[Rfam]
RNA sequence: GGUCAUGAGCACCAGCGCCAAGCCCCGGCUCGCUGGUCGGCAACCCUCCUCCGCGGCGGGGUGCUCCGGGUGACGACCUGGCCGUACCGAAGACGGUGCGGCAAGUGCGGAUU
Numbered sequence: 001g002g003u004c005a006u007g008a009g010c011a012c013c014a015g016c017g018c019c020a021a022g023c024c025c026c027g028g029c030u031c032g033c034u035g036g037u038c039g040g041c042a043a044c045c046c047u048c049c050u051c052c053g054c055g056g057c058g059g060g061g062u063g064c065u066c067c068g069g070g071u072g073a074c075g076a077c078c079u080g081g082c083c084g085u086a087c088c089g090a091a092g093a094c095g096g097u098g099c100g101g102c103a104a105g106u107g108c109g110g111a112u113u
Base pairs, nucleotide, nucleotide: 001078002077003076004075009038011037012036013035014034015033016032021030022029039065040064041063044061045060046059048056049055081102082101083100084099085098086097087096088095089094

Shown here is a 113-nucleotide RNA sequence from Nocardia farcinica, a member of the family "SAM (S-adenosyl methionine) riboswitch aptamer". The sequence is in the family's curated seed alignment. SAM-IV is a mRNA element that regulates gene expression via direct sensing of S-adenosylmethionine (SAM or AdoMet). SAM-IV riboswitches share conserved nucleotide positions with the previously described SAM-I riboswitches sequence analysis and molecular recognition experiments suggest that SAM-I and SAM-IV riboswitches share similar ligand binding sites, but have different scaffolds.